[Rfam]
RNA sequence: AUCAGUGAAAAGCAAACCUAUUGAAAAGUAGGGACGCAAAACUACAGAUCUAAAGCAGAUAGAUGCCAGGAUGGCUGGGUUGCCGCA
Numbered sequence: 001a002u003c004a005g006u007g008a009a010a011a012g013c014a015a016a017c018c019u020a021u022u023g024a025a026a027a028g029u030a031g032g033g034a035c036g037c038a039a040a041a042c043u044a045c046a047g048a049u050c051u052a053a054a055g056c057a058g059a060u061a062g063a064u065g066c067c068a069g070g071a072u073g074g075c076u077g078g079g080u081u082g083c084c085g086c087a
Stems, first nucleotide, its partner, number of pairs: 012037002017032006040081004045077003048072003055066003